[Rfam]
RNA sequence: GCCAUCUCUGCUAGUCUUAUGGCAACCACACUCGUCCCUAGAGUGAAAGAAGUACGCAACCAACUUCAACGGCUUAGCGGUUGC
Numbered sequence: 001g002c003c004a005u006c007u008c009u010g011c012u013a014g015u016c017u018u019a020u021g022g023c024a025a026c027c028a029c030a031c032u033c034g035u036c037c038c039u040a041g042a043g044u045g046a047a048a049g050a051a052g053u054a055c056g057c058a059a060c061c062a063a064c065u066u067c068a069a070c071g072g073c074u075u076a077g078c079g080g081u082u083g084c
Stems, first nucleotide, its partner, number of pairs: 001023004029045005049067004056084006
RNA: Lacto-phage-1 RNA
Organism: Limosilactobacillus frumenti